[Rfam]
RNA sequence: CCAGGGGGCCGGGCAACCGCGUGGGAACUUUAUGGUCCUUCGAGGAAAGUCCGGGCUCCACGAAACAAGGGUGGCGGGUAACGCCCGCCGACCUCCGCAAGGGGGUUAGGGAAAGUGCCACAGAGAGCAAACCGCCAAAGGGGCCUUCGGGUCUCAUGGUAAGGGUGAAAGGGUGCGGUAAGAGCGCACCGCGCAACCGGCAACGGAAGCGGCAUGGUAAACCCCACCCGGAGCAAAACCGAAUAGGGGCGCCGCGCCAGCGCAAGCUGGCAGGUCUGUUUCGGACCGAGGACGCCCGGGUUGGUUGCUUGAGCGCACGCAGCAAUGCGUCGCCGAGAUGAAUGGUUGCCCUUUGCGGUCGCGUCCUUUCAGGAUACGGGCCGCUCUGACAGAACCCGGCUUACAGGCCCUCUGGCGUA
Number, nucleotide and partner (000 for none) at each position: 001c415002c414003a413004g412005g411006g410007g409008g408009c407010c406011g404012g350013g349014c348015a347016a346017c345018c344019g000020c042021g041022u000023g039024g038025g037026a036027a000028c034029u000030u000031u000032a000033u000034g028035g000036u026037c025038c024039u023040u000041c021042g020043a000044g000045g000046a000047a402048a401049g400050u000051c399052c398053g397054g396055g395056c233057u232058c231059c230060a000061c000062g000063a000064a000065a281066c000067a279068a000069g229070g228071g227072u226073g225074g088075c087076g086077g085078g084079u000080a000081a000082c000083g000084c078085c077086c076087g075088c074089c109090g107091a106092c105093c104094u103095c102096c101097g000098c000099a000100a000101g096102g095103g094104g093105g092106u091107u090108a000109g089110g224111g223112a000113a000114a000115g222116u221117g218118c217119c216120a000121c000122a000123g000124a000125g000126a000127g000128c000129a000130a000131a000132c164133c163134g160135c159136c158137a000138a000139a000140g155141g154142g153143g152144c151145c150146u000147u000148c000149g000150g145151g144152u143153c142154u141155c140156a000157u000158g136159g135160u134161a000162a000163g133164g132165g000166u000167g000168a000169a000170a000171g000172g190173g189174u188175g187176c186177g185178g000179u000180a000181a000182g000183a000184g000185c177186g176187c175188a174189c173190c172191g213192c211193g210194c209195a000196a000197c206198c205199g204200g000201c000202a000203a000204c199205g198206g197207a000208a000209g194210c193211g192212g000213c191214a000215u000216g119217g118218u117219a000220a000221a116222c115223c111224c110225c073226a072227c071228c070229c069230g059231g058232a057233g056234c000235a000236a000237a306238a305239c304240c303241g000242a000243a000244u000245a000246g000247g297248g296249g295250c294251g293252c000253c000254g000255c000256g000257c000258c000259a000260g000261c000262g000263c000264a000265a000266g000267c000268u000269g000270g000271c000272a000273g287274g286275u285276c284277u283278g000279u067280u000281u065282c000283g277284g276285a275286c274287c273288g000289a000290g000291g000292a000293c251294g250295c249296c248297c247298g000299g000300g000301u000302u000303g240304g239305u238306u237307g000308c000309u000310u000311g000312a000313g333314c332315g331316c000317a330318c329319g328320c327321a326322g000323c000324a000325a000326u321327g320328c319329g318330u317331c315332g314333c313334c000335g000336a000337g000338a000339u000340g000341a000342a000343u000344g018345g017346u016347u015348g014349c013350c012351c000352u000353u000354u000355g000356c000357g000358g000359u000360c000361g000362c000363g000364u000365c000366c000367u000368u000369u000370c000371a000372g000373g000374a000375u000376a000377c000378g000379g000380g000381c000382c000383g000384c000385u000386c000387u000388g000389a000390c000391a000392g000393a000394a000395c055396c054397c053398g052399g051400c049401u048402u047403a000404c011405a000406g010407g009408c008409c007410c006411u005412c004413u003414g002415g001416c000417g000418u000419a000
RNA: Bacterial RNase P class A
Organism: Altericroceibacterium indicum